[Rfam]
RNA sequence: GGCGAUAAACGAUUUAUGGAAUAAGCGUUGCGGACCCGGGGGCGGUACCCGGCGCCUCCACCAUUAGUGUUAUGGGGGUGAAACAGGAUCGACGUGCGUAGUAAAGAUAUGUCUUUUGCCCGGCAUUGUACCACCGUUAUCGGGCUGUUUUAAUAGGUGCUAACAACAAUGCACUUACUGCAUCA
Numbered sequence: 001g002g003c004g005a006u007a008a009a010c011g012a013u014u015u016a017u018g019g020a021a022u023a024a025g026c027g028u029u030g031c032g033g034a035c036c037c038g039g040g041g042g043c044g045g046u047a048c049c050c051g052g053c054g055c056c057u058c059c060a061c062c063a064u065u066a067g068u069g070u071u072a073u074g075g076g077g078g079u080g081a082a083a084c085a086g087g088a089u090c091g092a093c094g095u096g097c098g099u100a101g102u103a104a105a106g107a108u109a110u111g112u113c114u115u116u117u118g119c120c121c122g123g124c125a126u127u128g129u130a131c132c133a134c135c136g137u138u139a140u141c142g143g144g145c146u147g148u149u150u151u152a153a154u155a156g157g158u159g160c161u162a163a164c165a166a167c168a169a170u171g172c173a174c175u176u177a178c179u180g181c182a183u184c185a
Stems, first nucleotide, its partner, number of pairs: 001120005015109003026098003030095003036052005053080007121136003
RNA: permuted transfer-messenger RNA
Organism: Alphaproteobacteria bacterium